[Rfam]
RNA: c-di-AMP riboswitch aptamer (ydaO/yuaA leader)
RNA sequence: CUCCCGAGGACGCCGGCCGAGGACGGGGGACCCAACAACGGCGGACGCCGUACGUGUCUGCCUAGGGGUGAAGCCGGUACGCCGGCCGGGCACCUGACAGCCCGAACCCGACAGCUCACCCCGCAGGCGUUCGUCAGGAAGGAA
Dot-bracket structure: ((.................))..(((((....(...............................)(((.....((((....))))..((((........))))...))).........))))).....................